[Rfam]
The record is a 128-nucleotide RNA from Cnephaeus nilssonii, which matches "mir-9193 microRNA precursor family" in Rfam.
RNA sequence: GGUGCAGUGGUGGGGUCCCUCGGCCUGGCCUGCAUCCUCUCGCAAUCCAGGACCCCUUGGGGGGAUGUUGGAGAGCCAGUUUCAGCCUGAUCCCUGCAGGCCAGGCUGAGGGACCCCACUGGUGCAUG
Dot-bracket structure: ..((.(.(((.((((((((((((((.((((((((............................................................)))))))).)))))))))))))).))).).))..
It scores 56 bits against the family's covariance model.